Shown here is a 58-nucleotide sequence from Angelica acutiloba, a member of the family "Plastid-psbA-3 3UTR RNA".

RNA sequence: AAAGAAGAAAUACCGCCCUCUUGUUCUAUCAAGAGGGCGGUAUUUCUUCUUUUUAUAU
Dot-bracket structure: (((((((((((((....((((((......))))))....)))))))))))))......
Numbered sequence: 001a002a003a004g005a006a007g008a009a010a011u012a013c014c015g016c017c018c019u020c021u022u023g024u025u026c027u028a029u030c031a032a033g034a035g036g037g038c039g040g041u042a043u044u045u046c047u048u049c050u051u052u053u054u055a056u057a058u
Stems, first nucleotide, its partner, number of pairs: 001052013018035006
The family is grouped with related families in Rfam's "Plastid-psbA 3UTR RNA clan".
It is annotated as a cis-regulatory element.
Plastid psbA-3 is a non-coding RNA (ncRNA) present in plastids. It was identified in inverted repeat sequences in the 3 prime untranslate region (3UTR) of photosystem II quinone-binding protein (psbA).
For this family Rfam cites "Retrograde signaling in plants: A critical review focusing on the GUN pathway and beyond" (Richter et al., Plant Commun, 2023).